[Rfam]
RNA sequence: AUACUUACCUGGACGGGGUCGAUGGGUGAUCAGUAAGAUCCAUGGCCUAGGUUGGUGGCUUUCAUUGCACUCAGAAGGUGCACCUGCCUAAGGUCUCCCCGAGUGUGAGAGCUUACGUCUUUAUUUGUGGCAGUUGGGGCCUGCGAACGCGCGGCCCCUUC
Numbered sequence: 001a002u003a004c005u006u007a008c009c010u011g012g013a014c015g016g017g018g019u020c021g022a023u024g025g026g027u028g029a030u031c032a033g034u035a036a037g038a039u040c041c042a043u044g045g046c047c048u049a050g051g052u053u054g055g056u057g058g059c060u061u062u063c064a065u066u067g068c069a070c071u072c073a074g075a076a077g078g079u080g081c082a083c084c085u086g087c088c089u090a091a092g093g094u095c096u097c098c099c100c101g102a103g104u105g106u107g108a109g110a111g112c113u114u115a116c117g118u119c120u121u122u123a124u125u126u127g128u129g130g131c132a133g134u135u136g137g138g139g140c141c142u143g144c145g146a147a148c149g150c151g152c153g154g155c156c157c158c159u160u161c
Base pairs, nucleotide, nucleotide: 012119013118014117015116016048017047018046019045020044021043023042024041025040026039027038049089050088051087053086055083056082057081060078061077062075063074091114092113093112094110095109096108099105136159137158138157139156142153143152144151145150

A member of the RNA family "U1 spliceosomal RNA" from Hibiscus syriacus, 161 nucleotides long.
About the family: U1 is a small nuclear RNA (snRNA) component of the spliceosome (involved in pre-mRNA splicing).